[Rfam]
RNA sequence: UAUAAUUGCAGUUGUGGGUUUCCGUGUCAAAUAUUUGACCGUCAAUCUUAUUUAAAUUUUUUAUGAAAAAUUUAAAAAAAAUAAGUCACAUAUAAAGUAUUAUUCAUGUUUAUCAUCUAAUAACAAUAAAAAUAUUAAUCUUAAAAAAAUUUAAAUAAGAUGGACGGCCAAAUGUUGGAUACGGAAACUCACAACUGCACUUAAA
Numbered sequence: 001u002a003u004a005a006u007u008g009c010a011g012u013u014g015u016g017g018g019u020u021u022c023c024g025u026g027u028c029a030a031a032u033a034u035u036u037g038a039c040c041g042u043c044a045a046u047c048u049u050a051u052u053u054a055a056a057u058u059u060u061u062u063a064u065g066a067a068a069a070a071u072u073u074a075a076a077a078a079a080a081a082u083a084a085g086u087c088a089c090a091u092a093u094a095a096a097g098u099a100u101u102a103u104u105c106a107u108g109u110u111u112a113u114c115a116u117c118u119a120a121u122a123a124c125a126a127u128a129a130a131a132a133u134a135u136u137a138a139u140c141u142u143a144a145a146a147a148a149a150u151u152u153a154a155a156u157a158a159g160a161u162g163g164a165c166g167g168c169c170a171a172a173u174g175u176u177g178g179a180u181a182c183g184g185a186a187a188c189u190c191a192c193a194a195c196u197g198c199a200c201u202u203a204a205a
Stems, first nucleotide, its partner, number of pairs: 027179002030176003034172004039167005045161007
RNA: MIR812 microRNA precursor family
Organism: Oryza sativa